[Rfam]
RNA: Small nucleolar RNA R21
Organism: Kingdonia uniflora
RNA sequence: AUCCCCGAUGAAGAUUGCUGUUAUGCAUAUUUAAAGUAGUGGACUGAUAACAUCUCUUGAUGAGUUCUUGAAAUCUGAGGGGUU
Numbered sequence: 001a002u003c004c005c006c007g008a009u010g011a012a013g014a015u016u017g018c019u020g021u022u023a024u025g026c027a028u029a030u031u032u033a034a035a036g037u038a039g040u041g042g043a044c045u046g047a048u049a050a051c052a053u054c055u056c057u058u059g060a061u062g063a064g065u066u067c068u069u070g071a072a073a074u075c076u077g078a079g080g081g082g083u084u
Stems, first nucleotide, its partner, number of pairs: 001084001003082004